[Rfam]
The record is a 122-nucleotide RNA from Amaranthus hypochondriacus, which matches "Plastid-psbA-1 3UTR RNA" in Rfam. NCBI's taxonomy places the organism under Eukaryota, Embryophyta, Spermatophyta, Gunneridae, Amaranthus. The family's consensus secondary structure was predicted with LocARNA. Plastid psbA-1 is a non-coding RNA (ncRNA) present in plastids.

RNA sequence: UCGAAGCUCCAUCUACAAAUGGAUAAAAUUUCGUUUUUAGUUUAGUAUAGAUGAGUUAUUGAAAGUUAAAGGAGCAAUGCCGUUUUCUUGUUUUGUCAAGAAAUUGGUUAUUGCUCCUUUAU
Numbered sequence: 001u002c003g004a005a006g007c008u009c010c011a012u013c014u015a016c017a018a019a020u021g022g023a024u025a026a027a028a029u030u031u032c033g034u035u036u037u038u039a040g041u042u043u044a045g046u047a048u049a050g051a052u053g054a055g056u057u058a059u060u061g062a063a064a065g066u067u068a069a070a071g072g073a074g075c076a077a078u079g080c081c082g083u084u085u086u087c088u089u090g091u092u093u094u095g096u097c098a099a100g101a102a103a104u105u106g107g108u109u110a111u112u113g114c115u116c117c118u119u120u121a122u
Base pairs, nucleotide, nucleotide: 008023009022010021011020012019068120069119070118071117072116073115074114075113076112077111078110079109085102086101087100088099089098